[Rfam]
RNA: FMN riboswitch aptamer (RFN element)
Organism: Thermus thermophilus
RNA sequence: CACCUCCUUCGGGGCGGGGUGGAAGUCCCCACCGGCGGUGAAAGCCCGCGAAGCCCCUAAAGGGGCCCGACCCGGUGGAAUUCCGGGGCCGACGGUGAAAGUCCGGAUGGGAGAAGGAGGGC
Numbered sequence: 001c002a003c004c005u006c007c008u009u010c011g012g013g014g015c016g017g018g019g020u021g022g023a024a025g026u027c028c029c030c031a032c033c034g035g036c037g038g039u040g041a042a043a044g045c046c047c048g049c050g051a052a053g054c055c056c057c058u059a060a061a062g063g064g065g066c067c068c069g070a071c072c073c074g075g076u077g078g079a080a081u082u083c084c085g086g087g088g089c090c091g092a093c094g095g096u097g098a099a100a101g102u103c104c105g106g107a108u109g110g111g112a113g114a115a116g117g118a119g120g121g122c
Stems, first nucleotide, its partner, number of pairs: 003120008017029003031102002033091002035049004044089002053066002071087005093105003